[Rfam]
Nucleotides: 052
Base pairs, nucleotide, nucleotide: 016044017043018042019041020040021039022038025035026034027033028032
Number, partner (000 for none) and nucleotide at each position: 001000g002000a003000u004000c005000c006000c007000g008000g009000a010000g011000g012000u013000c014000a015000a016044c017043a018042c019041c020040c021039g022038c023000c024000a025035g026034c027033g028032c029000g030000a031000u032028g033027c034026g035025c036000c037000c038022g039021c040020g041019g042018g043017u044016g045000u046000g047000g048000u049000u050000u051000g052000c
Description: The record is a 52-nucleotide sequence from Arsenicitalea aurantiaca, which matches "ffh sRNA" in Rfam. The literature on the family includes a 2009 paper in BMC Genomics by Meyer et al., "Identification of candidate structured RNAs in the marine organism 'Candidatus Pelagibacter ubique'". The match comes from Rfam's covariance-model search (63 bits). By type it is a small RNA. Pairs were carried over by alignment from the consensus structure, which is taken from published work.